[Rfam]
RNA sequence: GCUCACGAGAGGCAGCGACAAGCACCUGGCUGGCUGCCCGGCAACCUCCACUCCGUCCGAGGUGCUCCAGGGGAAGAGCCGGUCGGACGGCGCCCGCCGCCCGGCAAGACGGGGUU
Numbered sequence: 001g002c003u004c005a006c007g008a009g010a011g012g013c014a015g016c017g018a019c020a021a022g023c024a025c026c027u028g029g030c031u032g033g034c035u036g037c038c039c040g041g042c043a044a045c046c047u048c049c050a051c052u053c054c055g056u057c058c059g060a061g062g063u064g065c066u067c068c069a070g071g072g073g074a075a076g077a078g079c080c081g082g083u084c085g086g087a088c089g090g091c092g093c094c095c096g097c098c099g100c101c102c103g104g105c106a107a108g109a110c111g112g113g114g115u116u
Stems, first nucleotide, its partner, number of pairs: 001079004009039001011038006021031002040066003045062003050056001082105005088099004
About this RNA: The family of this 116-nucleotide RNA from Blastococcus sp. TF02A-26 is "SAM (S-adenosyl methionine) riboswitch aptamer". It scores 84 bits against the family's covariance model. Rfam describes the family as follows. SAM-IV is a mRNA element that regulates gene expression via direct sensing of S-adenosylmethionine (SAM or AdoMet). SAM-IV riboswitches share conserved nucleotide positions with the previously described SAM-I riboswitches sequence analysis and molecular recognition experiments suggest that SAM-I and SAM-IV riboswitches share similar ligand binding sites, but have different scaffolds. The source organism's lineage runs through Bacteria, Bacillati, Actinomycetota, Geodermatophilaceae and Blastococcus.